The family of this 59-nucleotide sequence is "Glutamine riboswitch aptamer (glnA leader)". The literature on the family includes a 2011 paper in RNA Biol by Ames and Breaker, "Bacterial aptamers that selectively bind glutamine".
[Rfam]
Nucleotides: 059
Base pairs, nucleotide, nucleotide: 003055004054005053006052007051009018010017021056027046028045029044030043031042032041
Number, partner (000 for none) and nucleotide at each position: 001000u002000u003055c004054g005053u006052u007051c008000a009018u010017c011000u012000u013000a014000a015000c016000u017010g018009a019000c020000g021056g022000a023000a024000g025000u026000a027046g028045g029044g030043u031042g032041u033000a034000c035000c036000u037000a038000u039000a040000a041032a042031c043030a044029c045028c046027u047000g048000a049000a050000g051007g052006a053005a054004c055003g056021c057000a058000u059000u